[Rfam]
RNA sequence: AAGCGAUGAUGUCAGGAAGCGUGCCAAGAGCGUUGCUUGACGGAGCUUGCAGGAGGGGUUGCACAGUGAAACCUCGACUUGGCGUAGGCAUUGCCGAAAGAAAAUGUGAAUG
Dot-bracket structure: ((((......((((((.(((((.[[[[..))))).))))))...))))..............(((.............]]]]....(((...))).........))).....
The family of this 112-nucleotide RNA is "drum RNA". Rfam's curators write: Firmicutes, Bacteroidetes (1 example), Proteobacteria (2 examples), Spirochaetes (2 examples). It is annotated as a small RNA.